[Rfam]
RNA sequence: GCACCGGAUGAGAGUUUCGUCGUUGUGGCUCAUAAUCAGAUAUCGAAGGAGAGCAACGUCAGAUAUCUGAACGGUAU
Dot-bracket structure: (.((((..((((................))))....((((((((.................))))))))..)))).)
CyVA-1 RNA: a 77-nucleotide RNA sequence from Coleofasciculus sp. LEGE 07092. It scores 75 bits against the family's covariance model. The family's RNA type in Rfam is small RNA. Pairs were carried over by alignment from the consensus structure, which is taken from published work. Cyanobacteria, Acidobacteria (1 example), Verrucomicrobia (1 example).